RNA sequence: UGACUGCGAUGAAGUAGGAGGUUGCCGAUACACACGGCCGCUUUGCCAUGGCGAGUGUACGGAAAAUUUCUACGGAGAAAGUCUAUUUUAAAAGUAGGCGA
Dot-bracket structure: .............(((.((((...(((................................)))....)))))))........((...(((......))).))
Numbered sequence: 001u002g003a004c005u006g007c008g009a010u011g012a013a014g015u016a017g018g019a020g021g022u023u024g025c026c027g028a029u030a031c032a033c034a035c036g037g038c039c040g041c042u043u044u045g046c047c048a049u050g051g052c053g054a055g056u057g058u059a060c061g062g063a064a065a066a067u068u069u070c071u072a073c074g075g076a077g078a079a080a081g082u083c084u085a086u087u088u089u090a091a092a093a094g095u096a097g098g099c100g101a
Stems, first nucleotide, its partner, number of pairs: 014073003018070004025062003082101002087098003
This 101-nucleotide sequence from Metabacillus indicus belongs to the Rfam family "S10-Clostridia ribosomal protein leader". Taxonomically the source falls in Metabacillus (Bacteria, Bacillati, Bacillota, Caryophanales). For this family Rfam cites "Discovery of 20 novel ribosomal leader candidates in bacteria and archaea" (Eckert and Weinberg, BMC Microbiol, 2020).